Rfam assigns this 89-nucleotide RNA from Gossypium arboreum to the family "Small nucleolar RNA R16".
Its family is annotated with nucleolus and RNA processing in the Gene Ontology.

RNA sequence: GAUGGCAAGGAAUGAAUAUUUAUCUUAUCCUACACUCUGAUUAAACCAUAUAGAUUCAGAUCUUCGCUUAUUGAUAUUUUGAUGCCAUU
Numbered sequence: 001g002a003u004g005g006c007a008a009g010g011a012a013u014g015a016a017u018a019u020u021u022a023u024c025u026u027a028u029c030c031u032a033c034a035c036u037c038u039g040a041u042u043a044a045a046c047c048a049u050a051u052a053g054a055u056u057c058a059g060a061u062c063u064u065c066g067c068u069u070a071u072u073g074a075u076a077u078u079u080u081g082a083u084g085c086c087a088u089u
Base pairs, nucleotide, nucleotide: 003087004086005085006084007083